[Rfam]
Rfam assigns this 74-nucleotide sequence from Bubo bubo to the family "Small nucleolar RNA SNORD19". Rfam classes the family as a C/D-box small nucleolar RNA.
RNA sequence: GAGAAAUGAGGAUACAGACUAUAUCUUAAUUCUGUAGUGAAGACUUCAGAUCCAACUCUGAUCUCACGCUGGAG
Numbered sequence: 001g002a003g004a005a006a007u008g009a010g011g012a013u014a015c016a017g018a019c020u021a022u023a024u025c026u027u028a029a030u031u032c033u034g035u036a037g038u039g040a041a042g043a044c045u046u047c048a049g050a051u052c053c054a055a056c057u058c059u060g061a062u063c064u065c066a067c068g069c070u071g072g073a074g
Stems, first nucleotide, its partner, number of pairs: 001065004